[Rfam]
A member of the RNA family "tRNA" from Desulfacinum hydrothermale, 85 nucleotides long.
Rfam classes the family as a transfer RNA.
Transfer RNA (tRNA) molecules are approximately 80 nucleotides in length.

RNA sequence: GCCGAAGUGGCGGAAUUGGUAGACGCGCUAGAUUCAGGAUCUAGUGGGCAAUAGGCCUGUCGGGGUUCGAGUCCCCGCUUCGGCA
Numbered sequence: 001g002c003c004g005a006a007g008u009g010g011c012g013g014a015a016u017u018g019g020u021a022g023a024c025g026c027g028c029u030a031g032a033u034u035c036a037g038g039a040u041c042u043a044g045u046g047g048g049c050a051a052u053a054g055g056c057c058u059g060u061c062g063g064g065g066u067u068c069g070a071g072u073c074c075c076c077g078c079u080u081c082g083g084c085a
Base pairs, nucleotide, nucleotide: 001084002083003082004081005080006079007078010026011025012024028044029043030042031041032040061077062076063075064074065073